[Rfam]
RNA sequence: GGGCAUUCAGAAGGCUUGCAGUCUGGGCUACUAGCAGAGAACUUAGUUUCUCCCUCAUUGCCCAGGGGAAAGUCCCCGGACCCGUGGCAGAAAGUGCCCUGGUUGAACCCAGUUCCGACUAACGCUACACCGUUACUAGCUAAGACGUUCUUCGGAGCUGAGCUUGGUCAUCGUUAGUCGACUUUGUCAGCUCGUAUAGUCAUGCAAGCGUGCGCCAUUACACGCUUCAACAGAACGGGGCUCAUUCUCCGAAUGUC
Numbered sequence: 001g002g003g004c005a006u007u008c009a010g011a012a013g014g015c016u017u018g019c020a021g022u023c024u025g026g027g028c029u030a031c032u033a034g035c036a037g038a039g040a041a042c043u044u045a046g047u048u049u050c051u052c053c054c055u056c057a058u059u060g061c062c063c064a065g066g067g068g069a070a071a072g073u074c075c076c077c078g079g080a081c082c083c084g085u086g087g088c089a090g091a092a093a094g095u096g097c098c099c100u101g102g103u104u105g106a107a108c109c110c111a112g113u114u115c116c117g118a119c120u121a122a123c124g125c126u127a128c129a130c131c132g133u134u135a136c137u138a139g140c141u142a143a144g145a146c147g148u149u150c151u152u153c154g155g156a157g158c159u160g161a162g163c164u165u166g167g168u169c170a171u172c173g174u175u176a177g178u179c180g181a182c183u184u185u186g187u188c189a190g191c192u193c194g195u196a197u198a199g200u201c202a203u204g205c206a207a208g209c210g211u212g213c214g215c216c217a218u219u220a221c222a223c224g225c226u227u228c229a230a231c232a233g234a235a236c237g238g239g240g241c242u243c244a245u246u247c248u249c250c251g252a253a254u255g256u257c
Stems, first nucleotide, its partner, number of pairs: 002257007010249002014209006022066007037052005071242002074240004086098004100111003113181002119177006127168002138164003147158004210227001212225003
RNA: RNase MRP